[Rfam]
RNA sequence: UAGUACUACAGCUCUUAGAAUUUGUCUAGCAGGCUUUCUGGUUUUUGCCAGAGAGCCCCC
Numbered sequence: 001u002a003g004u005a006c007u008a009c010a011g012c013u014c015u016u017a018g019a020a021u022u023u024g025u026c027u028a029g030c031a032g033g034c035u036u037u038c039u040g041g042u043u044u045u046u047g048c049c050a051g052a053g054a055g056c057c058c059c060c
Base pairs, nucleotide, nucleotide: 032057033056034055035054036053037052038051039050040049041048042047
This 60-nucleotide RNA sequence from Piliocolobus tephrosceles belongs to the Rfam family "U7 small nuclear RNA". The match comes from Rfam's covariance-model search (62 bits).